RNA sequence: GGGGACGUUUUUGGAUUCGACGGGGGUAGUUCGAGCAUGAGUAGCGGGUAGUGGGGAGCGUCCGCUUCAUCAACGCUAACGCCUAUUAAAUGGCAAACAACAACAAAACUACGCUUUCGCAGCUUAAUAACCUGUGAGCGUGCUUCUGCUUAGCAUCGCCCAUGUGCUAGGAUAGGGGCUCAACCUUAGUGGGAUACGCCGUUUGGUCUCCGCCUGGGGUCAAACGGAAGAAGACAAUCAGGCUGACCCAACGCGUAGCCGGUUACGGGGCGACGCUCGGGUGACAUCAAAACUGUGACUACACCCGUAGAAGCUUAUGUGGCGUUAUCUUCGGACAGGGGUUCGACUCCCCUCGUCUCCAUUU
Numbered sequence: 001g002g003g004g005a006c007g008u009u010u011u012u013g014g015a016u017u018c019g020a021c022g023g024g025g026g027u028a029g030u031u032c033g034a035g036c037a038u039g040a041g042u043a044g045c046g047g048g049u050a051g052u053g054g055g056g057a058g059c060g061u062c063c064g065c066u067u068c069a070u071c072a073a074c075g076c077u078a079a080c081g082c083c084u085a086u087u088a089a090a091u092g093g094c095a096a097a098c099a100a101c102a103a104c105a106a107a108a109c110u111a112c113g114c115u116u117u118c119g120c121a122g123c124u125u126a127a128u129a130a131c132c133u134g135u136g137a138g139c140g141u142g143c144u145u146c147u148g149c150u151u152a153g154c155a156u157c158g159c160c161c162a163u164g165u166g167c168u169a170g171g172a173u174a175g176g177g178g179c180u181c182a183a184c185c186u187u188a189g190u191g192g193g194a195u196a197c198g199c200c201g202u203u204u205g206g207u208c209u210c211c212g213c214c215u216g217g218g219g220u221c222a223a224a225c226g227g228a229a230g231a232a233g234a235c236a237a238u239c240a241g242g243c244u245g246a247c248c249c250a251a252c253g254c255g256u257a258g259c260c261g262g263u264u265a266c267g268g269g270g271c272g273a274c275g276c277u278c279g280g281g282u283g284a285c286a287u288c289a290a291a292a293c294u295g296u297g298a299c300u301a302c303a304c305c306c307g308u309a310g311a312a313g314c315u316u317a318u319g320u321g322g323c324g325u326u327a328u329c330u331u332c333g334g335a336c337a338g339g340g341g342u343u344c345g346a347c348u349c350c351c352c353u354c355g356u357c358u359c360c361a362u363u364u
Stems, first nucleotide, its partner, number of pairs: 001360007021333010035320008045307005050066005057077005116138007142179006149171008159193005199227009212243005246282004251277001258271003262299004337353005
transfer-messenger RNA: a 364-nucleotide RNA from Paenibacillus thalictri. By type it is a non-coding RNA gene. Taxonomically the source falls in Paenibacillus (Bacteria, Bacillati, Bacillota, Paenibacillaceae). The family is grouped with related families in Rfam's "tRNA clan".